[Rfam]
RNA sequence: AUAAGCCUUUGGGGCAAGGUGAAAAAGAGCAAUCUUUUAAUUCCUGACCGGCGGUAAAGUCCGCGAGCCAUAUGUGGCUGAUCCGGUUAAUUUCCGGAACCGACAGUAUAGUCUGGAUGGAAAAAGGCUGGC
Numbered sequence: 001a002u003a004a005g006c007c008u009u010u011g012g013g014g015c016a017a018g019g020u021g022a023a024a025a026a027g028a029g030c031a032a033u034c035u036u037u038u039a040a041u042u043c044c045u046g047a048c049c050g051g052c053g054g055u056a057a058a059g060u061c062c063g064c065g066a067g068c069c070a071u072a073u074g075u076g077g078c079u080g081a082u083c084c085g086g087u088u089a090a091u092u093u094c095c096g097g098a099a100c101c102g103a104c105a106g107u108a109u110a111g112u113c114u115g116g117a118u119g120g121a122a123a124a125a126g127g128c129u130g131g132c
Stems, first nucleotide, its partner, number of pairs: 004129007017045003047112002049102002051064004059100002067078003082098005104115003
The record is a 132-nucleotide RNA from Allolucifera butyrica, which matches "FMN riboswitch aptamer (RFN element)" in Rfam. Its family is annotated with FMN binding in the Gene Ontology.